[Rfam]
RNA sequence: AUAAAAUAUGAGCAAUACUGCUGAAAAGCAGUGACGCAAAGCUAUAGGGACUAACUCCGUAAGGAAAUGUCAGCCAGUUGCUAAA
Numbered sequence: 001a002u003a004a005a006a007u008a009u010g011a012g013c014a015a016u017a018c019u020g021c022u023g024a025a026a027a028g029c030a031g032u033g034a035c036g037c038a039a040a041g042c043u044a045u046a047g048g049g050a051c052u053a054a055c056u057c058c059g060u061a062a063g064g065a066a067a068u069g070u071c072a073g074c075c076a077g078u079u080g081c082u083a084a085a
Stems, first nucleotide, its partner, number of pairs: 012037002017032006040079004047075002049071003056065003
Shown here is an 85-nucleotide RNA sequence from Paenibacillus dendrobii, a member of the family "c-di-GMP-I riboswitch aptamer".
Rfam describes the family as follows. GEMM was predicted in a large-scale screen for bacterial structured RNA regulatory elements.
The base pairs follow the family's consensus structure, which is taken from published work.
The match comes from Rfam's covariance-model search (70 bits).
Gene Ontology term of the family: cyclic-di-GMP binding.